RNA sequence: UAAUCUGUUCGAAUUAGAUCCUUGUUUAGUUAUAAUAAACUCAUACCUGACUGAUCAGAAUUAUUCCCAUUAUUGUGUAAACAAUAGCUUUUUAAUAUUUUAAUUGAAA
Numbered sequence: 001u002a003a004u005c006u007g008u009u010c011g012a013a014u015u016a017g018a019u020c021c022u023u024g025u026u027u028a029g030u031u032a033u034a035a036u037a038a039a040c041u042c043a044u045a046c047c048u049g050a051c052u053g054a055u056c057a058g059a060a061u062u063a064u065u066c067c068c069a070u071u072a073u074u075g076u077g078u079a080a081a082c083a084a085u086a087g088c089u090u091u092u093u094a095a096u097a098u099u100u101u102a103a104u105u106g107a108a109a
Stems, first nucleotide, its partner, number of pairs: 004108001006106002008103002012099001014097001018093001024088002027084001029082003

The record is a 109-nucleotide RNA sequence from Populus alba, which matches "MIR480 microRNA precursor family" in Rfam. A reference for the family is Lu et al. (2005), "Novel and mechanical stress-responsive MicroRNAs in Populus trichocarpa that are absent from Arabidopsis", Plant Cell. Rfam links the family to the GO terms miRNA-mediated post-transcriptional gene silencing and RISC complex. It scores 55 bits against the family's covariance model.